[Rfam]
MIR8024 microRNA precursor family: an 86-nucleotide sequence from Solanum lycopersicum.
RNA sequence: UUGAAGGAUUUGAAGACUUAAACUUGCAAUACUAAAGAAUAUGAAAACUUCAACUUGCAAACUUAAUGAAUUUUAAGACAUCAAUU
Numbered sequence: 001u002u003g004a005a006g007g008a009u010u011u012g013a014a015g016a017c018u019u020a021a022a023c024u025u026g027c028a029a030u031a032c033u034a035a036a037g038a039a040u041a042u043g044a045a046a047a048c049u050u051c052a053a054c055u056u057g058c059a060a061a062c063u064u065a066a067u068g069a070a071u072u073u074u075a076a077g078a079c080a081u082c083a084a085u086u
Stems, first nucleotide, its partner, number of pairs: 001084004006079001009076002012073003017068001019066001021064001025059004033052001035050003